[Rfam]
RNA sequence: UCCACCAUGAGGUGGAAUCUGAAGGAAGUCGGCGGCAAAACUUUGACCUGACAAACAGAAAUUACAUAUAAGGCAUAUGCUUGCAGGUGAGUUUGCAUAACGAAACAAAGCCCUAAACUAUUUGAAACAGGCGGUGUAAGUGAAUUAUUCAACAAGCUAUUACU
Dot-bracket structure: ((((((....))))))...........(..((..((......((((..((............(.(((.....(((...(((((..(((..((((........))))...)))...............)))))..)))..))).).))).)))...))..))..)
The family of this 164-nucleotide sequence from Clostridium liquoris is "Group II catalytic intron D1-D4-3". Pairs were carried over by alignment from the consensus structure. The source organism's lineage runs through Bacteria, Bacillati, Bacillota, Eubacteriales and Clostridium.